The family of this 76-nucleotide sequence from Pedionomus torquatus is "Small nucleolar RNA SNORD66". For this family Rfam cites "RNomics: an experimental approach that identifies 201 candidates for novel, small, non-messenger RNAs in mouse" (Huttenhofer et al., EMBO J, 2001). The family's RNA type in Rfam is C/D-box small nucleolar RNA. Lineage of the source: Eukaryota > Euteleostomi > Sarcopterygii > Coelurosauria > Pedionomus. snoRNA HBII-142 is part of the C/D family of snoRNAs. It is the human orthologue of the mouse MBII-142 snoRNA and is predicted to guide 2'O-ribose methylation of small 18S rRNA at residue C1272.
RNA sequence: UUGCCAUGAUGAUCCAGCCUUCGAGCCGCUGUGUCUGGGCCACUGAUGUCCCUGAUGGAACUGAGGAUCUGAGCAG
Numbered sequence: 001u002u003g004c005c006a007u008g009a010u011g012a013u014c015c016a017g018c019c020u021u022c023g024a025g026c027c028g029c030u031g032u033g034u035c036u037g038g039g040c041c042a043c044u045g046a047u048g049u050c051c052c053u054g055a056u057g058g059a060a061c062u063g064a065g066g067a068u069c070u071g072a073g074c075a076g
Stems, first nucleotide, its partner, number of pairs: 001076004